[Rfam]
RNA sequence: CUUUUACGAAAUGAAGACGCCCUCCGAAACCAGUGUGAGGAGGGCGUCUGAUGACCAGCAAAAG
Numbered sequence: 001c002u003u004u005u006a007c008g009a010a011a012u013g014a015a016g017a018c019g020c021c022c023u024c025c026g027a028a029a030c031c032a033g034u035g036u037g038a039g040g041a042g043g044g045c046g047u048c049u050g051a052u053g054a055c056c057a058g059c060a061a062a063a064g
Stems, first nucleotide, its partner, number of pairs: 001064005016048010030037001
Shown here is a 64-nucleotide RNA sequence from Oryzias javanicus, a member of the family "Selenocysteine insertion sequence 1". The match comes from Rfam's covariance-model search (38 bits). The incorporation of selenocysteine into a protein sequence is directed by an in-frame UGA codon (usually a stop codon) within the coding region of the mRNA. Selenoprotein mRNAs contain a conserved secondary structure in the 3' UTR that is required for the distinction of UGA stop from UGA selenocysteine. The selenocysteine insertion sequence (SECIS) is around 60 nt in length and adopts a hairpin structure which is sufficiently well-defined and conserved to act as a computational screen for selenoprotein genes. Taxonomically the source falls in Oryzias (Eukaryota, Craniata, Actinopteri, Oryziinae). A reference for the family is Walczak et al. (1996), "A novel RNA structural motif in the selenocysteine insertion element of eukaryotic selenoprotein mRNAs", RNA. It is annotated as a cis-regulatory element. The base pairs follow the family's consensus structure, which is taken from published work.